[Rfam]
RNA sequence: GUUGGUUAUGGAGACAUGCAUCCGGUCACUAUUGGUGGUAAAAUAGUGGGCUCUCUGUGCGCAAUAGCAGGAGUGCUGACCAUUGCCUUACCCGUGCCAGUGAUUGUGUCCAAC
Number, nucleotide and partner (000 for none) at each position: 001g114002u113003u000004g111005g110006u000007u108008a107009u106010g105011g104012a000013g000014a101015c100016a000017u000018g097019c096020a095021u094022c000023c000024g000025g000026u000027c000028a000029c000030u000031a000032u000033u000034g000035g000036u000037g077038g076039u075040a074041a000042a000043a000044u000045a000046g000047u000048g000049g000050g062051c061052u000053c000054u000055c000056u000057g000058u000059g000060c000061g051062c050063a000064a000065u000066a000067g000068c000069a000070g000071g000072a000073g000074u040075g039076c038077u037078g000079a000080c000081c000082a000083u000084u000085g000086c000087c000088u000089u000090a000091c000092c000093c000094g021095u020096g019097c018098c000099a000100g015101u014102g000103a000104u011105u010106g009107u008108g007109u000110c005111c004112a000113a002114c001
The record is a 114-nucleotide sequence from Oreochromis niloticus, which matches "Potassium channel RNA editing signal" in Rfam. Its family is annotated with adenosine to inosine editing in the Gene Ontology. Rfam describes the family as follows. This family represents a group of sequences related to the human potassium channel Kv1.1 hairpin element which directs the efficient modification of an adenosine to inosine by an adenosine deaminase acting on RNA (ADAR). The ADAR modification causes an isoleucine/valine recoding event which lies in the ion-conducting pore of the potassium channel. It is thought that this editing event targets the process of fast inactivation and allows a more rapid recovery from inactivation at negative potentials. Lineage of the source: Eukaryota > Craniata > Actinopteri > African cichlids > Oreochromis. For this family Rfam cites "Control of human potassium channel inactivation by editing of a small mRNA hairpin" (Bhalla et al., Nat Struct Mol Biol, 2004).